[Rfam]
RNA sequence: CCGCAAGGCUAGGGCAAUGGUGGGCUUACUAAUUGUGUCAGGUCCGGAAGGAAGCAGCACUAUGUAGGUGCCGCCAUGUGCCUCAUUUAUAUGACUUUU
Numbered sequence: 001c002c003g004c005a006a007g008g009c010u011a012g013g014g015c016a017a018u019g020g021u022g023g024g025c026u027u028a029c030u031a032a033u034u035g036u037g038u039c040a041g042g043u044c045c046g047g048a049a050g051g052a053a054g055c056a057g058c059a060c061u062a063u064g065u066a067g068g069u070g071c072c073g074c075c076a077u078g079u080g081c082c083u084c085a086u087u088u089a090u091a092u093g094a095c096u097u098u099u
Stems, first nucleotide, its partner, number of pairs: 004093002007090001010085001012083003015078001017077006024069006035060004043052003
RNA: Bacterial small signal recognition particle RNA